[Rfam]
RNA sequence: ACAUGGAAUUCGGGAGAAUCCGGCCCCGCGCCGGUGCCGAAGGAGCAGCCGCCCCGGCGAACUCUCAGGCAAAAGGACCGUUUUCCGUUG
Numbered sequence: 001a002c003a004u005g006g007a008a009u010u011c012g013g014g015a016g017a018a019u020c021c022g023g024c025c026c027c028g029c030g031c032c033g034g035u036g037c038c039g040a041a042g043g044a045g046c047a048g049c050c051g052c053c054c055c056g057g058c059g060a061a062c063u064c065u066c067a068g069g070c071a072a073a074a075g076g077a078c079c080g081u082u083u084u085c086c087g088u089u090g
Stems, first nucleotide, its partner, number of pairs: 006085003011080003020034004036070003039066002043064003048058002